[Rfam]
RNA sequence: CAUCCCCGCAAGGCCGACGGCAUCCGCCGCCGCUGGUGCAAGCCCAGCCGCCGGAGCAAUCCGGCGGGCGCUCAUGGGGAACAA
Numbered sequence: 001c002a003u004c005c006c007c008g009c010a011a012g013g014c015c016g017a018c019g020g021c022a023u024c025c026g027c028c029g030c031c032g033c034u035g036g037u038g039c040a041a042g043c044c045c046a047g048c049c050g051c052c053g054g055a056g057c058a059a060u061c062c063g064g065c066g067g068g069c070g071c072u073c074a075u076g077g078g079g080a081a082c083a084a
Stems, first nucleotide, its partner, number of pairs: 004079004013069003018029003032048004049066006
Shown here is an 84-nucleotide RNA sequence from Colidextribacter sp. OB.20, a member of the family "Twister_sister_ribozyme". The organism belongs to Colidextribacter, within Bacteria. Pairs were carried over by alignment from the consensus structure, which is taken from published work. On this family, see Liu et al., Nat Chem Biol 2017: "The structure of a nucleolytic ribozyme that employs a catalytic metal ion".